Rfam assigns this 111-nucleotide sequence from Ictidomys tridecemlineatus to the family "Small nucleolar RNA SNORD90". Taxonomically the source falls in Ictidomys (Eukaryota, Chordata, Dipnotetrapodomorpha, Glires). It is annotated as a C/D-box small nucleolar RNA. snoRNA HBII-295 belongs to the family of C/D snoRNAs. It is the human orthologue of the mouse MBII-295 and has no identified RNA target. The sequence is in the family's curated seed alignment.

RNA sequence: GAAUAUGUUUUCUAAGUGUCUAAUGAUGAGUUUCAUAGGGCAGAUUCUGAGAUGAAAAUUUACUUCAUCAUUGAUACUCCUACUAUGAAAUCUGAAGACACUUGAAAACCU
Numbered sequence: 001g002a003a004u005a006u007g008u009u010u011u012c013u014a015a016g017u018g019u020c021u022a023a024u025g026a027u028g029a030g031u032u033u034c035a036u037a038g039g040g041c042a043g044a045u046u047c048u049g050a051g052a053u054g055a056a057a058a059u060u061u062a063c064u065u066c067a068u069c070a071u072u073g074a075u076a077c078u079c080c081u082a083c084u085a086u087g088a089a090a091u092c093u094g095a096a097g098a099c100a101c102u103u104g105a106a107a108a109c110c111u
Base pairs, nucleotide, nucleotide: 013104014103015102016101017100018099019098020097021096030091031090032089033088034087035086036085037081038080039079040078043075046074047073049071051069052068053067054066055065056064

Background: Its family is annotated with nucleolus and RNA processing in the Gene Ontology.